The record is a 79-nucleotide sequence from Acyrthosiphon pisum, which matches "mir-277 microRNA precursor family" in Rfam. The base pairs follow the family's consensus structure, which was predicted with RNAalifold. Rfam's curators put it in the seed alignment. Lineage of the source: Eukaryota > Metazoa > Pterygota > Hemiptera > Acyrthosiphon.
RNA sequence: CCGUACCAGAAGUGUUUUUGACAUGGACACACGGUUUUCGCCGUUCCCAAAUCAUGUAAAUGCACUAUCUGGUACGACA
Numbered sequence: 001c002c003g004u005a006c007c008a009g010a011a012g013u014g015u016u017u018u019u020g021a022c023a024u025g026g027a028c029a030c031a032c033g034g035u036u037u038u039c040g041c042c043g044u045u046c047c048c049a050a051a052u053c054a055u056g057u058a059a060a061u062g063c064a065c066u067a068u069c070u071g072g073u074a075c076g077a078c079a
Stems, first nucleotide, its partner, number of pairs: 002076009012065001014063002017060003027057003